[Rfam]
RNA sequence: AAAGUUUGACAGACAAUCGCUGGCUGAGGAUUACUCCGAGGCGAGAGGAAAGUCCGGGCUCCAAAGGGCAGGGUGCUGGAUAAUGUCCAGUCGGCGCGAGCUGAAGGAUAGUGCCACAGAAAUGGACCGCCGAUGGCACCGCCGUCUAACGACAGCGGAUGUCGCAGCCUUAAGGCUGUGACCGCACAGGCAAGGAUGGAACCGUGGUGUAAGAGACCACGAGGAUGUAAGGUGACUUAUGUCCUGGUAAACCCCACUUGGAGCAAGACCUAGAGGGACGCAGGCCGCUCUUGAGCGGCAGCCUUUGCCCGAGGCGCGUUCGGGUUGGUCGCUUGAGCCGUGCAGCAAUGUACGGCCUAGAUAGAUGAUUGUCACUUCAAUGGUGGGAGGGCGCUAGACACCCGAUGGACCACCGGAAGUACAGAACCCGGCUUACGGCAAACUUUCCAU
Numbered sequence: 001a002a003a004g005u006u007u008g009a010c011a012g013a014c015a016a017u018c019g020c021u022g023g024c025u026g027a028g029g030a031u032u033a034c035u036c037c038g039a040g041g042c043g044a045g046a047g048g049a050a051a052g053u054c055c056g057g058g059c060u061c062c063a064a065a066g067g068g069c070a071g072g073g074u075g076c077u078g079g080a081u082a083a084u085g086u087c088c089a090g091u092c093g094g095c096g097c098g099a100g101c102u103g104a105a106g107g108a109u110a111g112u113g114c115c116a117c118a119g120a121a122a123u124g125g126a127c128c129g130c131c132g133a134u135g136g137c138a139c140c141g142c143c144g145u146c147u148a149a150c151g152a153c154a155g156c157g158g159a160u161g162u163c164g165c166a167g168c169c170u171u172a173a174g175g176c177u178g179u180g181a182c183c184g185c186a187c188a189g190g191c192a193a194g195g196a197u198g199g200a201a202c203c204g205u206g207g208u209g210u211a212a213g214a215g216a217c218c219a220c221g222a223g224g225a226u227g228u229a230a231g232g233u234g235a236c237u238u239a240u241g242u243c244c245u246g247g248u249a250a251a252c253c254c255c256a257c258u259u260g261g262a263g264c265a266a267g268a269c270c271u272a273g274a275g276g277g278a279c280g281c282a283g284g285c286c287g288c289u290c291u292u293g294a295g296c297g298g299c300a301g302c303c304u305u306u307g308c309c310c311g312a313g314g315c316g317c318g319u320u321c322g323g324g325u326u327g328g329u330c331g332c333u334u335g336a337g338c339c340g341u342g343c344a345g346c347a348a349u350g351u352a353c354g355g356c357c358u359a360g361a362u363a364g365a366u367g368a369u370u371g372u373c374a375c376u377u378c379a380a381u382g383g384u385g386g387g388a389g390g391g392c393g394c395u396a397g398a399c400a401c402c403c404g405a406u407g408g409a410c411c412a413c414c415g416g417a418a419g420u421a422c423a424g425a426a427c428c429c430g431g432c433u434u435a436c437g438g439c440a441a442a443c444u445u446u447c448c449a450u
Base pairs, nucleotide, nucleotide: 001446002445003444004443005442006441007440008439010437012373013372014371015370016369017368018367020045021044023042024041025040028037050434051433052432054431055430056429057428058427059263060262061261062260066310067309068308069307071259072258073257074256075255076090077089078088079087080086091105092103093102094101095100106254107253111252112251113248114247115246127195128194129191130190131189134186135185203221204220205219206218207217208216223244224243225242226241227240228239229238230237231236267330268329269328270327276321277320278319279318280317281316301315302314303313304312305311337356338355339354340353341352342351343350344349